tRNA: a 73-nucleotide RNA sequence from Tieghemiomyces parasiticus. Lineage of the source: Eukaryota > Opisthokonta > Kickxellomycotina > Dimargaritaceae > Tieghemiomyces. It is annotated as a transfer RNA.
RNA sequence: GGAGCGUUGGCCUAAUGGAUAAGGCAUCAGACUUCGGAUCUGGGGAUUGUGGGUUCGAGUCCCAUGCGCUUCA
Numbered sequence: 001g002g003a004g005c006g007u008u009g010g011c012c013u014a015a016u017g018g019a020u021a022a023g024g025c026a027u028c029a030g031a032c033u034u035c036g037g038a039u040c041u042g043g044g045g046a047u048u049g050u051g052g053g054u055u056c057g058a059g060u061c062c063c064a065u066g067c068g069c070u071u072c073a
Base pairs, nucleotide, nucleotide: 001072002071003070004069005068006067007066010025011024012023013022027043028042029041030040031039049065050064051063052062053061